The family of this 65-nucleotide RNA sequence from Robiginitalea biformata is "DUF805 RNA".
[Rfam]
RNA sequence: GUCAAUUGGAGUCCAGAAACCAAUCAAACGGGGUGCAACUGAAAAACCUUACGAGUAGGACCCAA
Numbered sequence: 001g002u003c004a005a006u007u008g009g010a011g012u013c014c015a016g017a018a019a020c021c022a023a024u025c026a027a028a029c030g031g032g033g034u035g036c037a038a039c040u041g042a043a044a045a046a047c048c049u050u051a052c053g054a055g056u057a058g059g060a061c062c063c064a065a
Base pairs, nucleotide, nucleotide: 006023007022008021009020032048033047034046039059040058
It scores 64 bits against the family's covariance model.